This 59-nucleotide RNA from Paraburkholderia fynbosensis belongs to the Rfam family "Betaproteobacteria toxic small RNA". On this family, see Kimelman et al., Genome Res 2012: "A vast collection of microbial genes that are toxic to bacteria". Taxonomically the source falls in Paraburkholderia (Bacteria, Pseudomonadati, Pseudomonadota, Betaproteobacteria). The family has 51 seed sequences and 951 matches in Rfam 15.1.

RNA sequence: CGUCUCCUCCAUGUCUCCUCUGAUAUGGAUUCAGCCCGCCUCCGAGCGGGCUUUUUCUU
Numbered sequence: 001c002g003u004c005u006c007c008u009c010c011a012u013g014u015c016u017c018c019u020c021u022g023a024u025a026u027g028g029a030u031u032c033a034g035c036c037c038g039c040c041u042c043c044g045a046g047c048g049g050g051c052u053u054u055u056u057c058u059u
Base pairs, nucleotide, nucleotide: 008029009028010027011026012025013024014023015022033052034051035050036049037048038047039046
It scores 66 bits against the family's covariance model.
About the family: Overexpression in amino aid rich medium attenuates growth, suggesting role in repressing amino acid intake and metabolism.